Shown here is a 77-nucleotide RNA from Suricata suricatta, a member of the family "Mammalian CPEB3 ribozyme". It scores 70 bits against the family's covariance model. Pairs were carried over by alignment from the consensus structure, which is taken from published work. Rfam's curators write: The mammalian CPEB3 ribozyme is a self cleaving RNA located in the second intron of the CPEB3 gene which belongs to a family of genes regulating messenger RNA polyadenylation.

RNA sequence: AGAGGAUAACGGGGACCACAGCAGAAGUGUUCGUGUCGUGGCCCCUGUCAGAUGCCGGUGAAUCUGCAGAAUCUGCU
Numbered sequence: 001a002g003a004g005g006a007u008a009a010c011g012g013g014g015a016c017c018a019c020a021g022c023a024g025a026a027g028u029g030u031u032c033g034u035g036u037c038g039u040g041g042c043c044c045c046u047g048u049c050a051g052a053u054g055c056c057g058g059u060g061a062a063u064c065u066g067c068a069g070a071a072u073c074u075g076c077u
Stems, first nucleotide, its partner, number of pairs: 012045003016041002020077006027039003049066005055060001